[Rfam]
Nucleotides: 197
Base pairs, nucleotide, nucleotide: 008027009026010025012023013022014021015020048067049066050065051064052063053062069085070084071083072082073081074080114149115148116147117146118145119144120143121142128139129138130137131136152190153189154188155187156186157185159181160180161179162178163177164176
Number, partner (000 for none) and nucleotide at each position: 001000a002000u003000a004000c005000u006000u007000u008027u009026c010025u011000c012023g013022g014021c015020c016000u017000u018000u019000u020015g021014g022013c023012u024000a025010a026009g027008a028000u029000c030000a031000a032000g033000u034000g035000u036000a037000g038000u039000a040000u041000g042000u043000g044000u045000u046000c047000u048067u049066a050065u051064c052063a053062g054000u055000u056000u057000a058000a059000u060000a061000u062053c063052u064051g065050a066049u067048a068000u069085g070084u071083g072082g073081g074080g075000a076000a077000c078000u079000g080074c081073u082072u083071c084070a085069c086000a087000u088000g089000a090000u091000a092000u093000u094000a095000a096000a097000u098000u099000a100000a101000u102000a103000u104000u105000u106000u107000a108000a109000u110000g111000g112000g113000g114149g115148a116147a117146g118145g119144u120143c121142c122000a123000c124000c125000a126000c127000a128139a129138u130137a131136g132000c133000u134000u135000g136131c137130u138129a139128u140000u141000g142121g143120g144119a145118c146117u147116u148115u149114c150000a151000g152190g153189a154188g155187u156186c157185g158000c159181c160180u161179a162178u163177g164176u165000g166000u167000u168000g169000u170000a171000c172000u173000a174000c175000u176164g177163c178162a179161u180160a181159g182000a183000c184000c185157u186156g187155g188154c189153u190152c191000a192000c193000c194000u195000c196000a197000c
Rfam assigns this 197-nucleotide sequence from Coptis chinensis to the family "U2 spliceosomal RNA". The source organism's lineage runs through Eukaryota, Tracheophyta, Spermatophyta, Magnoliopsida and Coptis. The literature on the family includes a 1997 paper in Nucleic Acids Res by Zwieb, "The uRNA database". Its family is annotated with pre-mRNA branch point binding, mRNA branch site recognition and U2 snRNP in the Gene Ontology. The match comes from Rfam's covariance-model search (153 bits).